[Rfam]
RNA sequence: GGUGUGUGAGUGGCCAACGGAAUCCCAAAAGCAGCUGUUUUUCUCUUGAUUCAGCUGCACUUGGAUUUCGUUCUCUGCUCUCCUGCCC
Dot-bracket structure: ........(((((...(((((((((.((..(((((((..............)))))))..)))))))))))...))))).........
Numbered sequence: 001g002g003u004g005u006g007u008g009a010g011u012g013g014c015c016a017a018c019g020g021a022a023u024c025c026c027a028a029a030a031g032c033a034g035c036u037g038u039u040u041u042u043c044u045c046u047u048g049a050u051u052c053a054g055c056u057g058c059a060c061u062u063g064g065a066u067u068u069c070g071u072u073c074u075c076u077g078c079u080c081u082c083c084u085g086c087c088c
Stems, first nucleotide, its partner, number of pairs: 009079005017071009027062002031058007